A member of the RNA family "Histone 3' UTR stem-loop" from Takifugu flavidus, 46 nucleotides long. Rfam describes the family as follows. The mRNAs of metazoan histone genes lack a poly-A tail. 3' end processing occurs at a site between a highly conserved stem-loop (modelled by this family) and a purine rich region around 20 nts downstream (the histone downstream element, or HDE). A search with the family's covariance model found it, with a score of 37 bits. The family's RNA type in Rfam is cis-regulatory element.

RNA sequence: AAAACGGCUCUUUUAAGAGCCACUCACUACAAUCUAAAAGCAUAGU
Numbered sequence: 001a002a003a004a005c006g007g008c009u010c011u012u013u014u015a016a017g018a019g020c021c022a023c024u025c026a027c028u029a030c031a032a033u034c035u036a037a038a039a040g041c042a043u044a045g046u
Stems, first nucleotide, its partner, number of pairs: 006021006